[Rfam]
RNA: Bacterial RNase P class A
RNA sequence: AGAGUUGGCUGGAUAAUCGCUGCCGGUGUUAUUCGUAACGCCGGGAGAGGAAAGUCCGGGCUCCAUUGGGUAGAACGCCAGGUAACUCCUGGGGGGCGCGAGCCUACGGAAAGUGCAGCAGAGAGUAGACCGCCGAUGGUGGUGGCAAUCGUUCCGCGAUUGUUAACACACAGGUAAGGCUGAAAGGGUGCGGUAAGAGCGCACCGCAUGACUGGUAACAGUUCAUGGCAUGGUAAACCCCGUUCGGAGCAAGACCAAAUAGGAAUCCUACAGGUGUGACCCGCACUGGAUUCGGGUAGGUUGCUAAAGGCAUGUGGUGACGCAUGCCGUAGAUGAAUGAUUGUCCACGACAAAACCCGGCUUAUAGGCUGACUCUAUUU
Numbered sequence: 001a002g003a004g005u006u007g008g009c010u011g012g013a014u015a016a017u018c019g020c021u022g023c024c025g026g027u028g029u030u031a032u033u034c035g036u037a038a039c040g041c042c043g044g045g046a047g048a049g050g051a052a053a054g055u056c057c058g059g060g061c062u063c064c065a066u067u068g069g070g071u072a073g074a075a076c077g078c079c080a081g082g083u084a085a086c087u088c089c090u091g092g093g094g095g096g097c098g099c100g101a102g103c104c105u106a107c108g109g110a111a112a113g114u115g116c117a118g119c120a121g122a123g124a125g126u127a128g129a130c131c132g133c134c135g136a137u138g139g140u141g142g143u144g145g146c147a148a149u150c151g152u153u154c155c156g157c158g159a160u161u162g163u164u165a166a167c168a169c170a171c172a173g174g175u176a177a178g179g180c181u182g183a184a185a186g187g188g189u190g191c192g193g194u195a196a197g198a199g200c201g202c203a204c205c206g207c208a209u210g211a212c213u214g215g216u217a218a219c220a221g222u223u224c225a226u227g228g229c230a231u232g233g234u235a236a237a238c239c240c241c242g243u244u245c246g247g248a249g250c251a252a253g254a255c256c257a258a259a260u261a262g263g264a265a266u267c268c269u270a271c272a273g274g275u276g277u278g279a280c281c282c283g284c285a286c287u288g289g290a291u292u293c294g295g296g297u298a299g300g301u302u303g304c305u306a307a308a309g310g311c312a313u314g315u316g317g318u319g320a321c322g323c324a325u326g327c328c329g330u331a332g333a334u335g336a337a338u339g340a341u342u343g344u345c346c347a348c349g350a351c352a353a354a355a356c357c358c359g360g361c362u363u364a365u366a367g368g369c370u371g372a373c374u375c376u377a378u379u380u
Stems, first nucleotide, its partner, number of pairs: 001376010011365001012345007020047002023044008052363003056360005061249004068282004073245005078092005093107001094105004108240002113238002115234002130179002132175003137170002187205006206229001207227005212221003253302004263293006273287005309328008
Dot-bracket structure: ((((((((((((((((((.((.((((((((......)))))))).))....[[[.[[[[[((((...[[[[.((((((((((.....)))))(((((....)))).)((...((((.............(((((..((..............................))..)))..)).......((((((.......))))))(((((((((....))).))))).)...))..)))))))))))))...((((......((((((....(((((.]]]]))))))))))).....))))......((((((((....))))))))..........)))))))..........]]]]]]]].).))))))))))....